[Rfam]
RNA sequence: UGUCUCUGACCUAGGUAGAGUGGUAGCUGGUUGGUGGUGCUCAUCUUCUAGCAGCCAAGGACAAAAGCAAACCCUUUUUUAUCCUAACUUUACUUUUAAUCUGUAUCUAUACCUUGGUCAUGCCUUGGGCACAUGG
Numbered sequence: 001u002g003u004c005u006c007u008g009a010c011c012u013a014g015g016u017a018g019a020g021u022g023g024u025a026g027c028u029g030g031u032u033g034g035u036g037g038u039g040c041u042c043a044u045c046u047u048c049u050a051g052c053a054g055c056c057a058a059g060g061a062c063a064a065a066a067g068c069a070a071a072c073c074c075u076u077u078u079u080u081a082u083c084c085u086a087a088c089u090u091u092a093c094u095u096u097u098a099a100u101c102u103g104u105a106u107c108u109a110u111a112c113c114u115u116g117g118u119c120a121u122g123c124c125u126u127g128g129g130c131a132c133a134u135g136g
Base pairs, nucleotide, nucleotide: 001063002062003061004060005059007057008056011054012053018047019046020045022041023040024039025038027036076131078129079128080127081126093122097120099118101116103114106111
Background:
The family of this 136-nucleotide RNA from Carlito syrichta is "Small nucleolar RNA SNORA48". Rfam describes the family as follows. The snoRNA ACA 48 has been identified to guide pseudouridylation of the residue U3797 in the 28S rRNA subunit. Pairs were carried over by alignment from the consensus structure, which was predicted with RNAalifold.